[Rfam]
RNA: skipping-rope RNA
RNA sequence: AACUGCUGAAGAUAGAACAUGCAGCUAUCGCACCUUUAUGGUUUUAAAGAGAUGUCGGAAACGCCAACCGACCAGCAGUA
Numbered sequence: 001a002a003c004u005g006c007u008g009a010a011g012a013u014a015g016a017a018c019a020u021g022c023a024g025c026u027a028u029c030g031c032a033c034c035u036u037u038a039u040g041g042u043u044u045u046a047a048a049g050a051g052a053u054g055u056c057g058g059a060a061a062c063g064c065c066a067a068c069c070g071a072c073c074a075g076c077a078g079u080a
Base pairs, nucleotide, nucleotide: 002079003078004077005076006075007074008073011029012028013027014026015025021064022063031049032042033041034040054072055071056070057069058068
Dot-bracket structure: .(((((((..(((((.....[[..))))).((((.....)))......)....(((((....]]...)))))))))))).